[Rfam]
RNA: RNA anti-toxin A
RNA sequence: UAAUAAACAUAGAAAAAGGAGCUGAGCUACCAACUCAACUCCAACGUAGAACCGUUAAAAAGACGGUAGCUCGUAUAACAGAUUUAAUC
Numbered sequence: 001u002a003a004u005a006a007a008c009a010u011a012g013a014a015a016a017a018g019g020a021g022c023u024g025a026g027c028u029a030c031c032a033a034c035u036c037a038a039c040u041c042c043a044a045c046g047u048a049g050a051a052c053c054g055u056u057a058a059a060a061a062g063a064c065g066g067u068a069g070c071u072c073g074u075a076u077a078a079c080a081g082a083u084u085u086a087a088u089c
Base pairs, nucleotide, nucleotide: 023037024036025035026034051067052066053065054064055063056062